[Rfam]
RNA sequence: AUGCAGGACGCCUAGGGUUCCGCCGCGUCGCGCGGGUCAGGACCGAGAGGGGUCGCCGGUCACCGAGGCCGGUACACGGAGGGAUAAAAUCCCGGGAGAG
Numbered sequence: 001a002u003g004c005a006g007g008a009c010g011c012c013u014a015g016g017g018u019u020c021c022g023c024c025g026c027g028u029c030g031c032g033c034g035g036g037u038c039a040g041g042a043c044c045g046a047g048a049g050g051g052g053u054c055g056c057c058g059g060u061c062a063c064c065g066a067g068g069c070c071g072g073u074a075c076a077c078g079g080a081g082g083g084a085u086a087a088a089a090u091c092c093c094g095g096g097a098g099a100g
Stems, first nucleotide, its partner, number of pairs: 007054003011050002015044002020041002022038001023035005055073007075095001077098001081093003